[Rfam]
RNA sequence: GGCCUUAUGUAUACGAGCCGAGAUUUCAGCAGUCACCAGACCGUCAGAAUUGAUGAGGCUCCCAAGAUUAGUGAAGCG
Numbered sequence: 001g002g003c004c005u006u007a008u009g010u011a012u013a014c015g016a017g018c019c020g021a022g023a024u025u026u027c028a029g030c031a032g033u034c035a036c037c038a039g040a041c042c043g044u045c046a047g048a049a050u051u052g053a054u055g056a057g058g059c060u061c062c063c064a065a066g067a068u069u070a071g072u073g074a075a076g077c078g
Stems, first nucleotide, its partner, number of pairs: 002077002005074002008071001011068002017062001020061003024058005030052001
RNA: mir-3492 microRNA precursor family